[Rfam]
RNA sequence: CAUAUAUUUAUGAUGGUAUGAUACUAAACCCCUACCUGGAGGUGUUUUGCUUGAUUUUCAUAUG
Numbered sequence: 001c002a003u004a005u006a007u008u009u010a011u012g013a014u015g016g017u018a019u020g021a022u023a024c025u026a027a028a029c030c031c032c033u034a035c036c037u038g039g040a041g042g043u044g045u046u047u048u049g050c051u052u053g054a055u056u057u058u059c060a061u062a063u064g
Stems, first nucleotide, its partner, number of pairs: 001064005015051004020046005030039002